[Rfam]
RNA: mir-46/mir-47/mir-281 microRNA precursor family
RNA sequence: GGUCAUCAUCAUGAAGAGAGCUUAUCCGUAGACAGUAUUUAAUCGUUUCCACUGUCAUGGAGUUGCUCUCUUUCUGGUCUGACCU
Number, nucleotide and partner (000 for none) at each position: 001g000002g000003u000004c000005a000006u000007c000008a000009u000010c000011a000012u000013g073014a072015a071016g070017a069018g000019a067020g066021c065022u000023u000024a000025u061026c060027c059028g058029u000030a000031g056032a055033c054034a000035g052036u051037a000038u000039u000040u000041a000042a000043u000044c000045g000046u000047u000048u000049c000050c000051a036052c035053u000054g033055u032056c031057a000058u028059g027060g026061a025062g000063u000064u000065g021066c020067u019068c000069u017070c016071u015072u014073u013074c000075u000076g000077g000078u000079c000080u000081g000082a000083c000084c000085u000